[Rfam]
RNA sequence: GUGGCACUCAAAUGGGGGCCACUCUUCCGUUUUUAUCUGGAAAGUGCUUCCACAUUUGAGUGUUAC
Numbered sequence: 001g002u003g004g005c006a007c008u009c010a011a012a013u014g015g016g017g018g019c020c021a022c023u024c025u026u027c028c029g030u031u032u033u034u035a036u037c038u039g040g041a042a043a044g045u046g047c048u049u050c051c052a053c054a055u056u057u058g059a060g061u062g063u064u065a066c
Base pairs, nucleotide, nucleotide: 004063005062006061007060008059009058010057011056012055014053015051016050017049018048020046021045022044023043025042026041027040
Shown here is a 66-nucleotide sequence from Orycteropus afer, a member of the family "mir-290 microRNA precursor family". Gene Ontology terms of the family: RISC complex and miRNA-mediated post-transcriptional gene silencing. Its Rfam clan is "mir-290 clan". The literature on the family includes a 2004 paper in Dev Biol by Suh et al., "Human embryonic stem cells express a unique set of microRNAs". The match comes from Rfam's covariance-model search (53 bits).